[Rfam]
RNA sequence: GGCAGCGGCCGCGACUGGCGCUUGGGUGGGGGACCACCGGGGAGCGGCCGAGACCCGUUCGGUCGCGCGCCUGGGCCAUCCAU
Dot-bracket structure: .....(((((((..(([[[[[....((((....))))..))..)))))))..........((((..]]]]]..))))......
Shown here is an 83-nucleotide sequence from Agrococcus sp. SGAir0287, a member of the family "ZMP/ZTP riboswitch aptamer (pfl RNA motif)". The family's consensus secondary structure is taken from published work.